[Rfam]
RNA sequence: ACAACGGCUCUUUUAAGAGCCACACAUAUUCACGAAGAGCGUUUA
Number, nucleotide and partner (000 for none) at each position: 001a000002c000003a000004a000005c000006g021007g020008c019009u018010c017011u016012u000013u000014u000015a000016a011017g010018a009019g008020c007021c006022a000023c000024a000025c000026a000027u000028a000029u000030u000031c000032a000033c000034g000035a000036a000037g000038a000039g000040c000041g000042u000043u000044u000045a000

Rfam assigns this 45-nucleotide RNA from Acanthochromis polyacanthus to the family "Histone 3' UTR stem-loop".
The literature on the family includes a 2014 paper in Proc Natl Acad Sci U S A by Zhang et al., "Molecular mechanisms for the regulation of histone mRNA stem-loop-binding protein by phosphorylation".
A search with the family's covariance model found it, with a score of 38 bits.
The source organism's lineage runs through Eukaryota, Chordata, Actinopterygii, Euteleosteomorpha and Acanthochromis.
The mRNAs of metazoan histone genes lack a poly-A tail. 3' end processing occurs at a site between a highly conserved stem-loop (modelled by this family) and a purine rich region around 20 nts downstream (the histone downstream element, or HDE). The stem-loop is bound by a 31 kDa stem-loop binding protein (SLBP - also termed the histone hairpin binding protein, or HBP). Together with U7 snRNA binding of the HDE, SLBP binding nucleate s the formation of the processing complex. The histone 3' UTR stem-loop is also involved in nucleocytoplasmic transport of the mRNA, and in stability regulation and translation efficiency in the cytoplasm.
By type it is a cis-regulatory element.